[Rfam]
RNA: Actinobacteria sRNA Ms_IGR-5
RNA sequence: ACACGGGAAAGGAGGUGGUCCAGAGAAUGAGUUCUUUGCGGACACGUGAGGUGGCUGCUCGCUAGCAGCGCACCGUCGUCGGCAACCUUCGAGCGACCUUCGUUCGAGUGCGCGCAGGCGAAUCCAACAGCAGUCACCCGCCCCGCAGGCGUUCCGUGCUCGUCCGAACGGAGAGUCAUCAACCGCCUGCGGGGCGUCUGCA
Numbered sequence: 001a002c003a004c005g006g007g008a009a010a011g012g013a014g015g016u017g018g019u020c021c022a023g024a025g026a027a028u029g030a031g032u033u034c035u036u037u038g039c040g041g042a043c044a045c046g047u048g049a050g051g052u053g054g055c056u057g058c059u060c061g062c063u064a065g066c067a068g069c070g071c072a073c074c075g076u077c078g079u080c081g082g083c084a085a086c087c088u089u090c091g092a093g094c095g096a097c098c099u100u101c102g103u104u105c106g107a108g109u110g111c112g113c114g115c116a117g118g119c120g121a122a123u124c125c126a127a128c129a130g131c132a133g134u135c136a137c138c139c140g141c142c143c144c145g146c147a148g149g150c151g152u153u154c155c156g157u158g159c160u161c162g163u164c165c166g167a168a169c170g171g172a173g174a175g176u177c178a179u180c181a182a183c184c185g186c187c188u189g190c191g192g193g194g195c196g197u198c199u200g201c202a
Stems, first nucleotide, its partner, number of pairs: 014059006060120004065115002068113004074106002139196013153172005